[Rfam]
RNA sequence: ACUCUCUCAGCUCUGCAUUGUUACACUUGGUUUUCACACGUGUGACUUUCGUAAAGGGGAGAGAGAGAAAGGAUCGCCUCAGGACCUCAGGUUGGCCUCACAGUGGCCACUCUUUCCUUGAGGGGCACAACAGGC
Numbered sequence: 001a002c003u004c005u006c007u008c009a010g011c012u013c014u015g016c017a018u019u020g021u022u023a024c025a026c027u028u029g030g031u032u033u034u035c036a037c038a039c040g041u042g043u044g045a046c047u048u049u050c051g052u053a054a055a056g057g058g059g060a061g062a063g064a065g066a067g068a069a070a071g072g073a074u075c076g077c078c079u080c081a082g083g084a085c086c087u088c089a090g091g092u093u094g095g096c097c098u099c100a101c102a103g104u105g106g107c108c109a110c111u112c113u114u115u116c117c118u119u120g121a122g123g124g125g126c127a128c129a130a131c132a133g134g135c
Stems, first nucleotide, its partner, number of pairs: 002067007011059004020046007075125001077123003081119003089113003093109005